[Rfam]
RNA sequence: AGCCGUCUAAUGACACGCGCUAAGCAGGAACCGGGACUUGGUACACAUUCGCUAGCAGUCAGGUACCUGAAGUAGCGCGCGUUAUUCGGCUCA
Numbered sequence: 001a002g003c004c005g006u007c008u009a010a011u012g013a014c015a016c017g018c019g020c021u022a023a024g025c026a027g028g029a030a031c032c033g034g035g036a037c038u039u040g041g042u043a044c045a046c047a048u049u050c051g052c053u054a055g056c057a058g059u060c061a062g063g064u065a066c067c068u069g070a071a072g073u074a075g076c077g078c079g080c081g082u083u084a085u086u087c088g089g090c091u092c093a
Base pairs, nucleotide, nucleotide: 009086010085011084012083014081016079017078018077019076020075021074022073030064031063032062035060036059037058038057

Record summary: mir-275 microRNA precursor family: a 93-nucleotide RNA sequence from Anopheles gambiae. Rfam links the family to the GO terms miRNA-mediated post-transcriptional gene silencing and RISC complex. The literature on the family includes a 2007 paper in Nucleic Acids Res by Winter et al., "Anopheles gambiae miRNAs as actors of defence reaction against Plasmodium invasion".